[Rfam]
RNA sequence: GGACAGGACUCUGGAGAGACUCCGUCAAUGGAGCACCGAAGGGGCAAUACGCGCGCAGGCAGGGCAACCCAUGAACCGCCGCGUUAAAACUCUCAGGUAAAAGGACAGGGAUUGCGGG
Numbered sequence: 001g002g003a004c005a006g007g008a009c010u011c012u013g014g015a016g017a018g019a020c021u022c023c024g025u026c027a028a029u030g031g032a033g034c035a036c037c038g039a040a041g042g043g044g045c046a047a048u049a050c051g052c053g054c055g056c057a058g059g060c061a062g063g064g065c066a067a068c069c070c071a072u073g074a075a076c077c078g079c080c081g082c083g084u085u086a087a088a089a090c091u092c093u094c095a096g097g098u099a100a101a102a103g104g105a106c107a108g109g110g111a112u113u114g115c116g117g118g
Stems, first nucleotide, its partner, number of pairs: 006113002009110005020033004035098003038094002042092003048086002
Glycine riboswitch aptamer: a 118-nucleotide RNA from Paenibacillus lutimineralis. The literature on the family includes a 2017 paper in MBio by Babina et al., "In Vivo Behavior of the Tandem Glycine Riboswitch in Bacillus subtilis".